[Rfam]
RNA sequence: CAUUGCUGCUAGGGGAGCCGAACGGCUGAGAGGUAGUUAUCGGAAAGCUACUGACCCUUGUAAGAACCUGAUCUGGGUAAUGCCAGCGUAGGGAAGCGGCGCUAUCUGUAG
Numbered sequence: 001c002a003u004u005g006c007u008g009c010u011a012g013g014g015g016a017g018c019c020g021a022a023c024g025g026c027u028g029a030g031a032g033g034u035a036g037u038u039a040u041c042g043g044a045a046a047g048c049u050a051c052u053g054a055c056c057c058u059u060g061u062a063a064g065a066a067c068c069u070g071a072u073c074u075g076g077g078u079a080a081u082g083c084c085a086g087c088g089u090a091g092g093g094a095a096g097c098g099g100c101g102c103u104a105u106c107u108g109u110a111g
Stems, first nucleotide, its partner, number of pairs: 006099005011058004016052001017026003033051005067092004073086004
RNA: TPP riboswitch aptamer (THI element)
Organism: Ktedonosporobacter rubrisoli